[Rfam]
RNA sequence: CCUCCGGCGACCGCCUGGAGGGAACUGACACCGGUACCUGACACGGCCGGUGCAG
Numbered sequence: 001c002c003u004c005c006g007g008c009g010a011c012c013g014c015c016u017g018g019a020g021g022g023a024a025c026u027g028a029c030a031c032c033g034g035u036a037c038c039u040g041a042c043a044c045g046g047c048c049g050g051u052g053c054a055g
Stems, first nucleotide, its partner, number of pairs: 001021005006015003025055003029052007

A member of the RNA family "L17-Actino-Proteobacteria ribosomal protein leader" from Streptomyces sp. ISL-10, 55 nucleotides long. The literature on the family includes a 2020 paper in BMC Microbiol by Eckert and Weinberg, "Discovery of 20 novel ribosomal leader candidates in bacteria and archaea". By type it is a cis-regulatory leader. The match comes from Rfam's covariance-model search (65 bits).